[Rfam]
RNA sequence: ACCCCCUGGCAAUGGGCAAGGAGACACCUGAUUGGUGGUGUUGCUCCUCUAUCAGUCAGGGGCAAAGCAGAUGUACAGUCCUUAGUGCAUCCUAGUUUGAUGCCUGUGCCAGUGGCCAGAGCUGUUUCAUGCCUGAGGAACAUAA
Numbered sequence: 001a002c003c004c005c006c007u008g009g010c011a012a013u014g015g016g017c018a019a020g021g022a023g024a025c026a027c028c029u030g031a032u033u034g035g036u037g038g039u040g041u042u043g044c045u046c047c048u049c050u051a052u053c054a055g056u057c058a059g060g061g062g063c064a065a066a067g068c069a070g071a072u073g074u075a076c077a078g079u080c081c082u083u084a085g086u087g088c089a090u091c092c093u094a095g096u097u098u099g100a101u102g103c104c105u106g107u108g109c110c111a112g113u114g115g116c117c118a119g120a121g122c123u124g125u126u127u128c129a130u131g132c133c134u135g136a137g138g139a140a141c142a143u144a145a
Base pairs, nucleotide, nucleotide: 003062004061005060006059007058008057013054014053015052019048020047021046023042024041025040026039027038028037083140086137088135099133101131105129106128110124111123
RNA: Small nucleolar RNA SNORA48
Organism: Myotis davidii